Background:
This 409-nucleotide sequence from Salipiger abyssi belongs to the Rfam family "Bacterial RNase P class A". The source organism's lineage runs through Bacteria, Pseudomonadati, Rhodobacterales, Roseobacteraceae and Salipiger.
[Rfam]
RNA sequence: GUGGAGGGCCGGGCGGCCGCUGCCGGCGGAGCGAUCCGCCGGGGGAGGAAAGUCCGGACUCGCCGAAGCGCCGGUGCCGGGUAACGCCCGGGCAGGGCAACCUGACGGAGAGCGCCACAGAAAACAGACCGCCCCGGACCUGGUCCGGGGUCAGGGUGAAACGGUGGAGUAAGAGCCCACCGGGGGGCUGGCAACAGCGCCCGCAUGGCAAGCCCCACCGGGAGCAAUGCCAAAUAGGGACCUCGCGCGGGCAUGAUCCUUUCGGGGAUAUCGCCGCAGGGCGGCUUCGGCCCGAGAGGUCCGGGUUGGCAGCACGAGCCCCCGGGCGACCGGGGGCCUAGAGGAAUGGUCGCCGAUGGACGGGGCAACCCGUCCGGAACAGAAUCCGGCUUACAGGCCCUCCACGCAU
Numbered sequence: 001g002u003g004g005a006g007g008g009c010c011g012g013g014c015g016g017c018c019g020c021u022g023c024c025g026g027c028g029g030a031g032c033g034a035u036c037c038g039c040c041g042g043g044g045g046a047g048g049a050a051a052g053u054c055c056g057g058a059c060u061c062g063c064c065g066a067a068g069c070g071c072c073g074g075u076g077c078c079g080g081g082u083a084a085c086g087c088c089c090g091g092g093c094a095g096g097g098c099a100a101c102c103u104g105a106c107g108g109a110g111a112g113c114g115c116c117a118c119a120g121a122a123a124a125c126a127g128a129c130c131g132c133c134c135c136g137g138a139c140c141u142g143g144u145c146c147g148g149g150g151u152c153a154g155g156g157u158g159a160a161a162c163g164g165u166g167g168a169g170u171a172a173g174a175g176c177c178c179a180c181c182g183g184g185g186g187g188c189u190g191g192c193a194a195c196a197g198c199g200c201c202c203g204c205a206u207g208g209c210a211a212g213c214c215c216c217a218c219c220g221g222g223a224g225c226a227a228u229g230c231c232a233a234a235u236a237g238g239g240a241c242c243u244c245g246c247g248c249g250g251g252c253a254u255g256a257u258c259c260u261u262u263c264g265g266g267g268a269u270a271u272c273g274c275c276g277c278a279g280g281g282c283g284g285c286u287u288c289g290g291c292c293c294g295a296g297a298g299g300u301c302c303g304g305g306u307u308g309g310c311a312g313c314a315c316g317a318g319c320c321c322c323c324g325g326g327c328g329a330c331c332g333g334g335g336g337c338c339u340a341g342a343g344g345a346a347u348g349g350u351c352g353c354c355g356a357u358g359g360a361c362g363g364g365g366c367a368a369c370c371c372g373u374c375c376g377g378a379a380c381a382g383a384a385u386c387c388g389g390c391u392u393a394c395a396g397g398c399c400c401u402c403c404a405c406g407c408a409u
Base pairs, nucleotide, nucleotide: 001405002404003403004402005401006400007399008398009397010396011394012354013353014352015351016350017349018348020045021044023042024041025040026039027038028037050392051391052390054389055388056387057386058385059224060223061222063221068287070285072220073219074218075217076216077091078090079089080088081087092106093104094103095102096101107215108214112213113212114209115208116207129155130154131151132150133149134148135147136146137145138144139143163181164180165179166178167177182204183202184201185200187198188197189196190195228311229310230309231308238302239301240300241299242298243297279293280292281291282290318337319336320335321334322333323332324331325330